A member of the RNA family "ZMP/ZTP riboswitch aptamer (pfl RNA motif)" from Alkalibacillus haloalkaliphilus, 84 nucleotides long. The source organism's lineage runs through Bacteria, Bacillota, Bacilli, Caryophanales and Alkalibacillus.
RNA sequence: CACGCAUGUAGUAACUGACGACGUAAAUGGAAAUAACCAUAAGGGAGCUACAUGUAACUUUUGUCGGUCGUCUGGGCAGGAGAA
Numbered sequence: 001c002a003c004g005c006a007u008g009u010a011g012u013a014a015c016u017g018a019c020g021a022c023g024u025a026a027a028u029g030g031a032a033a034u035a036a037c038c039a040u041a042a043g044g045g046a047g048c049u050a051c052a053u054g055u056a057a058c059u060u061u062u063g064u065c066g067g068u069c070g071u072c073u074g075g076g077c078a079g080g081a082g083a084a
Base pairs, nucleotide, nucleotide: 004055005054006053007052008051009050010049011048012047015044016043017072018071019070020069021068027040028039029038030037061079062078063077064076065075

It scores 55 bits against the family's covariance model.